[Rfam]
RNA sequence: GCAACCUGCGGCUGGCGCAGGGCCAGCCGGUGGUGUUCCGCUCGCUGCUGGGCAUCAGCUGGAUGUGGUUCUUCGGCGCGGUGUUCCUGGCGCAGUUCCCGGCGUUCGCCAGGGAAGUGCUG
Numbered sequence: 001g002c003a004a005c006c007u008g009c010g011g012c013u014g015g016c017g018c019a020g021g022g023c024c025a026g027c028c029g030g031u032g033g034u035g036u037u038c039c040g041c042u043c044g045c046u047g048c049u050g051g052g053c054a055u056c057a058g059c060u061g062g063a064u065g066u067g068g069u070u071c072u073u074c075g076g077c078g079c080g081g082u083g084u085u086c087c088u089g090g091c092g093c094a095g096u097u098c099c100c101g102g103c104g105u106u107c108g109c110c111a112g113g114g115a116a117g118u119g120c121u122g
Base pairs, nucleotide, nucleotide: 010049011048012047014045017042021038022037024035025034051121052120053119054118055117059113060112062110063105064104065103067099068098071095072094074092075091077089078088080087081086
RNA: Burkholderia RNA 11
Organism: Comamonas antarctica